[Rfam]
RNA sequence: CCUGCUUCGUCAUCUGGGGAGUAGCCAGCCGCCUUUUUCGAGGCGGGCUCCGGCGUCAACAUACUCGGCCGAGAGGCCGUGGCGCGGAGAGGACGGAAUUUUCCGUUCGGGCGAGACCAAAUGGCAUUGCACCUCUGCCCCGGCCGGGCGGGAGGCGCGAUGCCUUUGGUUUGUCUGUCGCCCGGCCC
Numbered sequence: 001c002c003u004g005c006u007u008c009g010u011c012a013u014c015u016g017g018g019g020a021g022u023a024g025c026c027a028g029c030c031g032c033c034u035u036u037u038u039c040g041a042g043g044c045g046g047g048c049u050c051c052g053g054c055g056u057c058a059a060c061a062u063a064c065u066c067g068g069c070c071g072a073g074a075g076g077c078c079g080u081g082g083c084g085c086g087g088a089g090a091g092g093a094c095g096g097a098a099u100u101u102u103c104c105g106u107u108c109g110g111g112c113g114a115g116a117c118c119a120a121a122u123g124g125c126a127u128u129g130c131a132c133c134u135c136u137g138c139c140c141c142g143g144c145c146g147g148g149c150g151g152g153a154g155g156c157g158c159g160a161u162g163c164c165u166u167u168g169g170u171u172u173g174u175c176u177g178u179c180g181c182c183c184g185g186c187c188c
Stems, first nucleotide, its partner, number of pairs: 029046003048089004053085006066079005
Source information:
The record is a 188-nucleotide RNA from Stakelama tenebrarum, which matches "Manganese Mn2+ riboswitch aptamer (yybP-ykoY)" in Rfam. The match comes from Rfam's covariance-model search (52 bits). The source organism's lineage runs through Bacteria, Pseudomonadati, Pseudomonadota, Sphingomonadales and Stakelama.